About this RNA:
This 99-nucleotide RNA from Spirodela intermedia belongs to the Rfam family "Plastid-rps12 3UTR RNA". Rfam 15.1 lists 1,710 matches to the family in 1,426 species.
[Rfam]
RNA sequence: GGUUUCUGUUUGUGCAAAUCUAAUCACCUCAAUUUGAGAUGAAAAUCAAUUCUCCAUUGGUAGCAAAAAAAUUUAUCCAUUAAGUGGGGAUAACUAUGU
Numbered sequence: 001g002g003u004u005u006c007u008g009u010u011u012g013u014g015c016a017a018a019u020c021u022a023a024u025c026a027c028c029u030c031a032a033u034u035u036g037a038g039a040u041g042a043a044a045a046u047c048a049a050u051u052c053u054c055c056a057u058u059g060g061u062a063g064c065a066a067a068a069a070a071a072u073u074u075a076u077c078c079a080u081u082a083a084g085u086g087g088g089g090a091u092a093a094c095u096a097u098g099u
Stems, first nucleotide, its partner, number of pairs: 009023002012020001052089004056080002059077005
Plastid rpl20 is a non-coding RNA (ncRNA) recognised in plastids. It was found in the three prime untranslated region (3UTR) of rps12 gene, its 3UTR location sugest a role in transcript maduration. Rfam classes the family as a cis-regulatory element.